[Rfam]
RNA: Bacterial RNase P class A
RNA sequence: ACAGUGGGCGGGGUGACCGCUGGCGAUCGCAUUGGUCGAUCGCUGGAGGAAAGUCCGGGCUCCGCAGGGCAGGAUGGUCGAUAACGUCGACCGGCCGUGAGGUUAGGGAAAGUGCAGCAGAAAGCAGACCGCCGAACGGUUUGGGGUGACCCCUUUGGGAGUUGCUUCAAACGCGUGGUAAGGGUGAAACGGUGCGGUAAGAGCGCACCAGCGACCGGGGUGACUCGGUCGGCUCGGUAAACCCCAUCCGGAGCUAGACCAAACAGGGUGCAUUCACGAGGCGGCCCGUCUCGUUAUCGACAUCCGGGUAGGUUGCAAUUGAGGCGGCGAGCAAUCGUCGUGCACAGAUAAAUGGUCACCGGCAACAAACGUUGUCACAAAACCCGGCUUACAAGCCCGCUGGAUCU
Numbered sequence: 001a002c003a004g005u006g007g008g009c010g011g012g013g014u015g016a017c018c019g020c021u022g023g024c025g026a027u028c029g030c031a032u033u034g035g036u037c038g039a040u041c042g043c044u045g046g047a048g049g050a051a052a053g054u055c056c057g058g059g060c061u062c063c064g065c066a067g068g069g070c071a072g073g074a075u076g077g078u079c080g081a082u083a084a085c086g087u088c089g090a091c092c093g094g095c096c097g098u099g100a101g102g103u104u105a106g107g108g109a110a111a112g113u114g115c116a117g118c119a120g121a122a123a124g125c126a127g128a129c130c131g132c133c134g135a136a137c138g139g140u141u142u143g144g145g146g147u148g149a150c151c152c153c154u155u156u157g158g159g160a161g162u163u164g165c166u167u168c169a170a171a172c173g174c175g176u177g178g179u180a181a182g183g184g185u186g187a188a189a190c191g192g193u194g195c196g197g198u199a200a201g202a203g204c205g206c207a208c209c210a211g212c213g214a215c216c217g218g219g220g221u222g223a224c225u226c227g228g229u230c231g232g233c234u235c236g237g238u239a240a241a242c243c244c245c246a247u248c249c250g251g252a253g254c255u256a257g258a259c260c261a262a263a264c265a266g267g268g269u270g271c272a273u274u275c276a277c278g279a280g281g282c283g284g285c286c287c288g289u290c291u292c293g294u295u296a297u298c299g300a301c302a303u304c305c306g307g308g309u310a311g312g313u314u315g316c317a318a319u320u321g322a323g324g325c326g327g328c329g330a331g332c333a334a335u336c337g338u339c340g341u342g343c344a345c346a347g348a349u350a351a352a353u354g355g356u357c358a359c360c361g362g363c364a365a366c367a368a369a370c371g372u373u374g375u376c377a378c379a380a381a382a383c384c385c386g387g388c389u390u391a392c393a394a395g396c397c398c399g400c401u402g403g404a405u406c407u
Stems, first nucleotide, its partner, number of pairs: 002402008011392001012360007020046009051390003055387005060253004067287004072249005077091005092106001093104004107244002112242002114238002129183002131179004137173002191209006211233001212231008257314004266305005278292005323343001324341007